[Rfam]
RNA sequence: AGCACAAGACAGGGGAGCCCGCUGUGCGGGCUGAGAGUGCGGAACCGCCGCAGACCCUCCGAACCUGAUCCGGCUAGCACCGGCGAAGGGAGUCAGCAUGAAGACCAU
Dot-bracket structure: .......(((((((..(((((.....)))))......(((((.....)))))..)))).....(((...((((......))))...)))..)))..............
RNA: TPP riboswitch aptamer (THI element)
Organism: Nocardioides thalensis